The record is a 45-nucleotide RNA sequence from Mastacembelus armatus, which matches "Histone 3' UTR stem-loop" in Rfam. Rfam's curators write: The mRNAs of metazoan histone genes lack a poly-A tail. 3' end processing occurs at a site between a highly conserved stem-loop (modelled by this family) and a purine rich region around 20 nts downstream (the histone downstream element, or HDE). The match comes from Rfam's covariance-model search (37 bits). Gene Ontology term of the family: mRNA 3'-end processing by stem-loop binding and cleavage.
RNA sequence: CCAAAGGCUCUUUUAAGAGCCACCCACUGUUUCUGCUGAAGCAAA
Number, nucleotide and partner (000 for none) at each position: 001c000002c000003a000004a000005a000006g021007g020008c019009u018010c017011u016012u000013u000014u000015a000016a011017g010018a009019g008020c007021c006022a000023c000024c000025c000026a000027c000028u000029g000030u000031u000032u000033c000034u000035g000036c000037u000038g000039a000040a000041g000042c000043a000044a000045a000